[Rfam]
RNA sequence: CCGGUUCCGGUUCACGCCCGACCCGCCGCGAACGGCAGCGGGGGCGACCCGGCGACC
Number, nucleotide and partner (000 for none) at each position: 001c000002c000003g057004g056005u055006u000007c052008c051009g050010g049011u000012u000013c000014a000015c046016g045017c044018c043019c042020g000021a000022c041023c040024c000025g000026c000027c000028g000029c000030g000031a000032a000033c000034g000035g000036c000037a000038g000039c000040g023041g022042g019043g018044g017045c016046g015047a000048c000049c010050c009051g008052g007053c000054g000055a005056c004057c003

This 57-nucleotide RNA sequence from Micromonospora siamensis belongs to the Rfam family "L31-Actinobacteria ribosomal protein leader". Rfam classes the family as a cis-regulatory leader. The organism belongs to Micromonospora, within Bacteria. The match comes from Rfam's covariance-model search (52 bits).